This 53-nucleotide RNA from Salmo salar belongs to the Rfam family "UnaL2 LINE 3' element". Rfam links the family to the GO term transposition, RNA-mediated. Rfam classes the family as a cis-regulatory element. A search with the family's covariance model found it, with a score of 56 bits. The organism belongs to Salmo, within Eukaryota. The eel long interspersed element (LINE) UnaL2 and its partner short interspersed element (SINE) share a conserved 3' tail containing a stem-loop that is critical for their retrotransposition. Presumably, the first step of retrotransposition is the recognition of their 3' tails by UnaL2-encoded reverse transcriptase.
RNA sequence: AAUUCACCAAUUUGUAAGUGGCUCUGGAUAAGAGCGUCUGCAAAUGACGUAAA
Numbered sequence: 001a002a003u004u005c006a007c008c009a010a011u012u013u014g015u016a017a018g019u020g021g022c023u024c025u026g027g028a029u030a031a032g033a034g035c036g037u038c039u040g041c042a043a044a045u046g047a048c049g050u051a052a053a
Base pairs, nucleotide, nucleotide: 013042014041015040016039021035022034023033024032025031